[Rfam]
Rfam assigns this 83-nucleotide sequence from Anaerosolibacter carboniphilus to the family "Clostridiales-2 RNA". The base pairs follow the family's consensus structure, which is taken from published work. A search with the family's covariance model found it, with a score of 62 bits.
RNA sequence: UGGAUAUGAAGCGUGCAGAGGGAACUCUCCCUCUGCCGUAUUCAGAAAGGUGUGCAGUCUGUUUUGCGGGCGUCGAAGGAAAC
Numbered sequence: 001u002g003g004a005u006a007u008g009a010a011g012c013g014u015g016c017a018g019a020g021g022g023a024a025c026u027c028u029c030c031c032u033c034u035g036c037c038g039u040a041u042u043c044a045g046a047a048a049g050g051u052g053u054g055c056a057g058u059c060u061g062u063u064u065u066g067c068g069g070g071c072g073u074c075g076a077a078g079g080a081a082a083c
Stems, first nucleotide, its partner, number of pairs: 015036008057071005